Shown here is a 74-nucleotide sequence from Trypanosoma rangeli, a member of the family "Trypanosomatid snoRNA TB11Cs4H3".
Pairs were carried over by alignment from the consensus structure, which was predicted with WAR.
Its family is annotated with nucleolus and RNA processing in the Gene Ontology.
Taxonomically the source falls in Herpetosoma (Eukaryota, Discoba, Trypanosomatida, Trypanosoma).
It is annotated as an H/ACA-box small nucleolar RNA.
RNA sequence: AGCGCAACAUCCCUUGGGCCGGCGGCCUGCUGUUGGUGCCGCGCGUGGCGCCCCUGUCCGAUUGUGCGAGAGUU
Number, nucleotide and partner (000 for none) at each position: 001a000002g067003c066004g065005c064006a063007a062008c000009a000010u000011c000012c000013c000014u000015u000016g053017g052018g051019c050020c000021g000022g000023c000024g000025g000026c000027c000028u000029g000030c000031u000032g000033u000034u000035g000036g000037u000038g000039c000040c000041g000042c000043g000044c000045g000046u000047g000048g000049c000050g019051c018052c017053c016054c000055u000056g000057u000058c000059c000060g000061a000062u007063u006064g005065u004066g003067c002068g000069a000070g000071a000072g000073u000074u000
The literature on the family includes a 2005 paper in RNA by Liang et al., "A genome-wide analysis of C/D and H/ACA-like small nucleolar RNAs in Trypanosoma brucei reveals a trypanosome-specific pattern of rRNA modification".